[Rfam]
RNA sequence: UUGAACGACAGGGGAGCGCCUUCAAGGGUGCUGAGAGUGCGAAAGCAGACCCUCGAACCUGAUCCGGUUAGUACCGGCGUAGGGAUGUCGAGUCUCAAGUCC
Dot-bracket structure: .....((((((((..(((((......)))))......(((....)))..))).....((((..((((......))))..))))..)))))............
Rfam assigns this 102-nucleotide RNA sequence from Rothia amarae to the family "TPP riboswitch aptamer (THI element)". It scores 67 bits against the family's covariance model. Gene Ontology term of the family: thiamine pyrophosphate binding. NCBI's taxonomy places the organism under Bacteria, Actinomycetota, Actinomycetes, Micrococcales, Rothia. The family's consensus secondary structure is taken from published work.